[Rfam]
RNA sequence: UCCCACCGCUUCCUGUCAGGACCUUGUCCUCGGCCUCGCCGAACCUUCCUCAAUGGACAUUGUCUGUUACAGCAGUGGGAGAGCAAAGCCGUCCCCGACAUGCUGGCUGCGCACCGUUUUGGUGUGCAUGUCUAGUCGACUUCUCCCGUUUUGGGCAGGGUCAAUAUGGGGCGGUAGUGUUCCGUAUUGAGUUGAGAACUUGAUUUCUGCGGCUUGCAGUCCUGUACAAGUUCUCUUAGUUACGUUUCACACACUU
Numbered sequence: 001u002c003c004c005a006c007c008g009c010u011u012c013c014u015g016u017c018a019g020g021a022c023c024u025u026g027u028c029c030u031c032g033g034c035c036u037c038g039c040c041g042a043a044c045c046u047u048c049c050u051c052a053a054u055g056g057a058c059a060u061u062g063u064c065u066g067u068u069a070c071a072g073c074a075g076u077g078g079g080a081g082a083g084c085a086a087a088g089c090c091g092u093c094c095c096c097g098a099c100a101u102g103c104u105g106g107c108u109g110c111g112c113a114c115c116g117u118u119u120u121g122g123u124g125u126g127c128a129u130g131u132c133u134a135g136u137c138g139a140c141u142u143c144u145c146c147c148g149u150u151u152u153g154g155g156c157a158g159g160g161u162c163a164a165u166a167u168g169g170g171g172c173g174g175u176a177g178u179g180u181u182c183c184g185u186a187u188u189g190a191g192u193u194g195a196g197a198a199c200u201u202g203a204u205u206u207c208u209g210c211g212g213c214u215u216g217c218a219g220u221c222c223u224g225u226a227c228a229a230g231u232u233c234u235c236u237u238a239g240u241u242a243c244g245u246u247u248c249a250c251a252c253a254c255u256u
Stems, first nucleotide, its partner, number of pairs: 003078004019065004025059004030042005089174006102136005109127007138162003142158001145155004177250003183244003194235004200229003207219005